RNA: FMN riboswitch aptamer (RFN element)
Organism: Ligilactobacillus apodemi
RNA sequence: GUUUAUCUUCAGGGCAGGGUGUAAAUCCCGACCGGCGGUGAUAGUCCGCGACUCCUCUUAGACCGAAUCGGUGAAAUUCCGAUACCGACAGUAUAGUCUGGAUGAAAGAAGAUAGGU
Numbered sequence: 001g002u003u004u005a006u007c008u009u010c011a012g013g014g015c016a017g018g019g020u021g022u023a024a025a026u027c028c029c030g031a032c033c034g035g036c037g038g039u040g041a042u043a044g045u046c047c048g049c050g051a052c053u054c055c056u057c058u059u060a061g062a063c064c065g066a067a068u069c070g071g072u073g074a075a076a077u078u079c080c081g082a083u084a085c086c087g088a089c090a091g092u093a094u095a096g097u098c099u100g101g102a103u104g105a106a107a108g109a110a111g112a113u114a115g116g117u
Stems, first nucleotide, its partner, number of pairs: 003115008017029003031097002033087002035049004044085002053062002067083005089100003